[Rfam]
RNA sequence: UCGUGCAGCCGGGGUGUUAGCGGUACCUUGUACCUACAAUCCGCUAUAGUAGGGGUGAUAUUGCGCAGAGGGCAUUUUUCUUUCGGAGCUGCCCUUAAUAAGUGGCGUUGAUGACUGGGUCUUACGCGACGGGAAUCUGUGAACCGUGUCAGGUCGGGAACGAAGCAGCACUAAGCAGAACCUCCCGGGUGCCGUAAGGCAGCCUGGUCUGAGUUAACUGUUAAGGUAACGUCCGGGAGAAAGUGUUCGAAGCGCAAUGCACGU
Numbered sequence: 001u002c003g004u005g006c007a008g009c010c011g012g013g014g015u016g017u018u019a020g021c022g023g024u025a026c027c028u029u030g031u032a033c034c035u036a037c038a039a040u041c042c043g044c045u046a047u048a049g050u051a052g053g054g055g056u057g058a059u060a061u062u063g064c065g066c067a068g069a070g071g072g073c074a075u076u077u078u079u080c081u082u083u084c085g086g087a088g089c090u091g092c093c094c095u096u097a098a099u100a101a102g103u104g105g106c107g108u109u110g111a112u113g114a115c116u117g118g119g120u121c122u123u124a125c126g127c128g129a130c131g132g133g134a135a136u137c138u139g140u141g142a143a144c145c146g147u148g149u150c151a152g153g154u155c156g157g158g159a160a161c162g163a164a165g166c167a168g169c170a171c172u173a174a175g176c177a178g179a180a181c182c183u184c185c186c187g188g189g190u191g192c193c194g195u196a197a198g199g200c201a202g203c204c205u206g207g208u209c210u211g212a213g214u215u216a217a218c219u220g221u222u223a224a225g226g227u228a229a230c231g232u233c234c235g236g237g238a239g240a241a242a243g244u245g246u247u248c249g250a251a252g253c254g255c256a257a258u259g260c261a262c263g264u
Base pairs, nucleotide, nucleotide: 002263003262004261005260006259007258008056009055010054011029012028013027014026015025016024017023018022033053034052035051036050037049061257062256063255064254065253066252070248071247072246073245074244077242078241079240080239081238082237083236084235085234086233090228091227094225095224096223097222098221099220102218103217104215105214106213113209114208115207116206117205118204119203120202121198122197123196124195125194126193127189130187131186132185133184134183136179137178138177139176140175146171147170148169149168154163155162156161
RNA: Bacterial large signal recognition particle RNA